[Rfam]
RNA sequence: UAAAGAUGAAGUUCGACUAAGAACGCAACGUCCUGUUGCAACGUCGAACUGACCCUCGUCCUGAGGG
Numbered sequence: 001u002a003a004a005g006a007u008g009a010a011g012u013u014c015g016a017c018u019a020a021g022a023a024c025g026c027a028a029c030g031u032c033c034u035g036u037u038g039c040a041a042c043g044u045c046g047a048a049c050u051g052a053c054c055c056u057c058g059u060c061c062u063g064a065g066g067g
Base pairs, nucleotide, nucleotide: 011049012048013047014046015045016044017043025039026038027037028036029035053067054066055065056064057063

Rfam assigns this 67-nucleotide sequence from Halobacillus sp. BBL2006 to the family "Bacillaceae-1 RNA". The base pairs follow the family's consensus structure, which is taken from published work. The organism belongs to Halobacillus, within Bacteria. The match comes from Rfam's covariance-model search (76 bits).